This 81-nucleotide sequence from Chionoecetes opilio belongs to the Rfam family "mir-965 microRNA precursor family". It scores 51 bits against the family's covariance model. Its family is annotated with RISC complex and miRNA-mediated post-transcriptional gene silencing in the Gene Ontology. Lineage of the source: Eukaryota > Decapoda > Brachyura > Majidae > Chionoecetes. On this family, see Huang et al., Bioorg Khim 2012: "The regulation of silkworm fibroin L chain production by miRNA-965 and miRNA-1926 in insect cells".

[Rfam]
RNA sequence: GGUCGGAGAGGGAGAAGCUGUUGCGGUUAUGUCGGUCUUGACCACUUCCCAUCAUAAGCGUAUAGCUUUUCCCCUCCGUGC
Numbered sequence: 001g002g003u004c005g006g007a008g009a010g011g012g013a014g015a016a017g018c019u020g021u022u023g024c025g026g027u028u029a030u031g032u033c034g035g036u037c038u039u040g041a042c043c044a045c046u047u048c049c050c051a052u053c054a055u056a057a058g059c060g061u062a063u064a065g066c067u068u069u070u071c072c073c074c075u076c077c078g079u080g081c
Stems, first nucleotide, its partner, number of pairs: 004078004010073003014069002018065004027057005